[Rfam]
RNA sequence: CCAGGGUGGUAGUGGUGAUCUGGUUAGACUACAGUCACGGCAUUUCUCUGAGGAUCUUUGAAACCACUUGAUCCACUUUUA
Numbered sequence: 001c002c003a004g005g006g007u008g009g010u011a012g013u014g015g016u017g018a019u020c021u022g023g024u025u026a027g028a029c030u031a032c033a034g035u036c037a038c039g040g041c042a043u044u045u046c047u048c049u050g051a052g053g054a055u056c057u058u059u060g061a062a063a064c065c066a067c068u069u070g071a072u073c074c075a076c077u078u079u080u081a
Base pairs, nucleotide, nucleotide: 003080004079005078006077007075008074009073018072019071020070022068023067024066031057033055035053036052038050040046

Rfam assigns this 81-nucleotide RNA sequence from Rousettus aegyptiacus to the family "Small nucleolar RNA ZL8". Taxonomically the source falls in Rousettus (Eukaryota, Euteleostomi, Chiroptera, Rousettinae). A reference for the family is Kishore et al. (2013), "Insights into snoRNA biogenesis and processing from PAR-CLIP of snoRNA core proteins and small RNA sequencing", Genome Biol. Its family is annotated with RNA processing and nucleolus in the Gene Ontology.